[Rfam]
RNA sequence: GUAACCGUGAGGUUAUAUCUGAAGUAAGCGAAACUACAAAACUCGGUACUGACCCUUCGACAAGCUCAGGAUAAACCAAGCAGGAACCGUAUAUAGAGGCAUAUUUACUCGGGUAAGCAAGCACAUCAUUGUCACGCCCAACGAUUAUCAAAAAGGUAAAUAUGUAGAUACGGCAGGGAUUGAGUGAAACCUGCCCGU
Numbered sequence: 001g002u003a004a005c006c007g008u009g010a011g012g013u014u015a016u017a018u019c020u021g022a023a024g025u026a027a028g029c030g031a032a033a034c035u036a037c038a039a040a041a042c043u044c045g046g047u048a049c050u051g052a053c054c055c056u057u058c059g060a061c062a063a064g065c066u067c068a069g070g071a072u073a074a075a076c077c078a079a080g081c082a083g084g085a086a087c088c089g090u091a092u093a094u095a096g097a098g099g100c101a102u103a104u105u106u107a108c109u110c111g112g113g114u115a116a117g118c119a120a121g122c123a124c125a126u127c128a129u130u131g132u133c134a135c136g137c138c139c140a141a142c143g144a145u146u147a148u149c150a151a152a153a154a155g156g157u158a159a160a161u162a163u164g165u166a167g168a169u170a171c172g173g174c175a176g177g178g179a180u181u182g183a184g185u186g187a188a189a190c191c192u193g194c195c196c197g198u
Base pairs, nucleotide, nucleotide: 001016002015003014004013005012006011028198029197030196041185042184043183044182045181046180047178049176050175051174087173088172089171090170091169092168099165100164101163103161104160105159106158107157108156109155111139112138113137114136117132118131119130120129